[Rfam]
RNA sequence: GGGGACCUUCGGGGCCCUUUACCAUCAGGGCCGCGCAGGCGGUCCGCACAAGCAAACGGAAGACAGUAA
Numbered sequence: 001g002g003g004g005a006c007c008u009u010c011g012g013g014g015c016c017c018u019u020u021a022c023c024a025u026c027a028g029g030g031c032c033g034c035g036c037a038g039g040c041g042g043u044c045c046g047c048a049c050a051a052g053c054a055a056a057c058g059g060a061a062g063a064c065a066g067u068a069a
Base pairs, nucleotide, nucleotide: 001018002017003016004015006014007013008012028045029044030043031042032041033040034039
The record is a 69-nucleotide RNA sequence, which matches "L2-Alphaproteobacteria ribosomal protein leader" in Rfam. It is annotated as a cis-regulatory leader.